RNA sequence: UCCUAGCCCAGAUAGCAGUGAAAAUCCUUAUGCGCCAGUCCCGAAACCUCGGGAUGGCGAAUAAGAUUGUAACGAAUAGCUGGAGAAAGC
Numbered sequence: 001u002c003c004u005a006g007c008c009c010a011g012a013u014a015g016c017a018g019u020g021a022a023a024a025u026c027c028u029u030a031u032g033c034g035c036c037a038g039u040c041c042c043g044a045a046a047c048c049u050c051g052g053g054a055u056g057g058c059g060a061a062u063a064a065g066a067u068u069g070u071a072a073c074g075a076a077u078a079g080c081u082g083g084a085g086a087a088a089g090c
Base pairs, nucleotide, nucleotide: 009082010081011080013078014077018073019072023068024067025066026065029063030062031061033059034058035057036056
RNA: Flavo-1 RNA
Organism: Flavobacterium sp. FPG59